[Rfam]
RNA sequence: AAAUUCCUGCUAUGUGCGUGUUAUAUCGCAGUUUUGAGCCAACAUUUUAACUUAGGGAUUCUCACUCUUGUAAGGGCGCUCUGCCUCUACGAGGACUGUAAUCUUACAAGGAGGAAACCCACCUGCCCUUGCAGGAUCAAAACACGGUAUGGAUACGGCAUAGUGGGGCCUUU
Numbered sequence: 001a002a003a004u005u006c007c008u009g010c011u012a013u014g015u016g017c018g019u020g021u022u023a024u025a026u027c028g029c030a031g032u033u034u035u036g037a038g039c040c041a042a043c044a045u046u047u048u049a050a051c052u053u054a055g056g057g058a059u060u061c062u063c064a065c066u067c068u069u070g071u072a073a074g075g076g077c078g079c080u081c082u083g084c085c086u087c088u089a090c091g092a093g094g095a096c097u098g099u100a101a102u103c104u105u106a107c108a109a110g111g112a113g114g115a116a117a118c119c120c121a122c123c124u125g126c127c128c129u130u131g132c133a134g135g136a137u138c139a140a141a142a143c144a145c146g147g148u149a150u151g152g153a154u155a156c157g158g159c160a161u162a163g164u165g166g167g168g169c170c171u172u173u
Base pairs, nucleotide, nucleotide: 002171005168006167007166008165009164010163011162012161013160014159015158017157018156019155033142034141035139036138037137039135040134055120056119057118059116060115061114062113066110068109069108070107071106072105073104074103084094085093086092087091

6S / SsrS RNA: a 173-nucleotide RNA sequence from Veillonella sp. oral taxon 780.
NCBI's taxonomy places the organism under Bacteria, Bacillota, Veillonellaceae, Veillonella, Veillonella sp. oral taxon 780.
A search with the family's covariance model found it, with a score of 77 bits.
Rfam's curators write: E. coli 6S RNA was the first non coding RNA to be sequenced, but its function was unknown until recently.
On this family, see Wassarman and Storz, Cell 2000: "6S RNA regulates E. coli RNA polymerase activity".